[Rfam]
Small nucleolar RNA SNORA13: a 124-nucleotide RNA from Phyllostomus discolor.
Clan: SNORA13 clan.
It scores 120 bits against the family's covariance model.
Rfam describes the family as follows. ACA13 is a member of the H/ACA class of snoRNA that guide the sites of modification of uridines to pseudouridines.
The family has 50 seed sequences and 1,034 matches in Rfam 15.1.
Gene Ontology terms of the family: RNA processing and nucleolus.

RNA sequence: UGCCUUUGUGUUGCCCGUUCACUUUUGGAAACUAGUGAAUGUGGUGUCAAGAAAGGCAUAAACUAAACACUUUGCAGCCCUUGCAUAUGAUGUCUUUGGUGUAGGAGCUGCAUAAGUAACAGUG
Numbered sequence: 001u002g003c004c005u006u007u008g009u010g011u012u013g014c015c016c017g018u019u020c021a022c023u024u025u026u027g028g029a030a031a032c033u034a035g036u037g038a039a040u041g042u043g044g045u046g047u048c049a050a051g052a053a054a055g056g057c058a059u060a061a062a063c064u065a066a067a068c069a070c071u072u073u074g075c076a077g078c079c080c081u082u083g084c085a086u087a088u089g090a091u092g093u094c095u096u097u098g099g100u101g102u103a104g105g106a107g108c109u110g111c112a113u114a115a116g117u118a119a120c121a122g123u124g
Base pairs, nucleotide, nucleotide: 002057003056004055005054006053007052009049010048012046013045014044015043016041017040018039019038020037021036022035023034069117070116071115072114073112074111075110076109077108078107079099080098083094